RNA sequence: GUGAUCCUCACUGGAGAGAGGCUGGCCUUUGAGCCAGUCCACCGAAGGGGCAAGCCCGCACCGCCAUGGUCAUGCCGUGGCGAUGGGUCAAUCUCUCAGGUAAAGCGGACAGCGAGGGCAGC
Numbered sequence: 001g002u003g004a005u006c007c008u009c010a011c012u013g014g015a016g017a018g019a020g021g022c023u024g025g026c027c028u029u030u031g032a033g034c035c036a037g038u039c040c041a042c043c044g045a046a047g048g049g050g051c052a053a054g055c056c057c058g059c060a061c062c063g064c065c066a067u068g069g070u071c072a073u074g075c076c077g078u079g080g081c082g083a084u085g086g087g088u089c090a091a092u093c094u095c096u097c098a099g100g101u102a103a104a105g106c107g108g109a110c111a112g113c114g115a116g117g118g119c120a121g122c
Stems, first nucleotide, its partner, number of pairs: 006117004011112003020039006041101003044097002048095003054088005
A member of the RNA family "Glycine riboswitch aptamer" from Aquabacterium sp., 122 nucleotides long. Rfam links the family to the GO term glycine biosynthetic process. The family is grouped with related families in Rfam's "Glycine riboswitch clan". The match comes from Rfam's covariance-model search (57 bits).